[Rfam]
RNA sequence: UUAUUUGAGUGCCGCCUAGUUAUAUUGCAUAAUUAGGCGCAAGGCUGGUGAUUUUAUAAUCACCAGCCU
Numbered sequence: 001u002u003a004u005u006u007g008a009g010u011g012c013c014g015c016c017u018a019g020u021u022a023u024a025u026u027g028c029a030u031a032a033u034u035a036g037g038c039g040c041a042a043g044g045c046u047g048g049u050g051a052u053u054u055u056a057u058a059a060u061c062a063c064c065a066g067c068c069u
Base pairs, nucleotide, nucleotide: 013039014038015037016036020032021031022030023029043068044067045066046065047064048063049062050061051060052059

A member of the RNA family "Pseudomonas sRNA P26" from Alteromonadales bacterium alter-6D02, 69 nucleotides long.
For this family Rfam cites "Identification of 17 Pseudomonas aeruginosa sRNAs and prediction of sRNA-encoding genes in 10 diverse pathogens using the bioinformatic tool sRNAPredict2" (Livny et al., Nucleic Acids Res, 2006).
This small RNA (sRNA) was computationally identified in the genome of the opportunistic pathogen Pseudomonas aeruginosa and its expression verified by northern blot analysis. P26 is conserved across many Gammaproteobacteria species and appears to be consistently located between the DNA directed RNA polymerase (beta subunit) and 50S ribosomal protein L7/L12 genes.
The organism belongs to Alteromonadales, within Bacteria.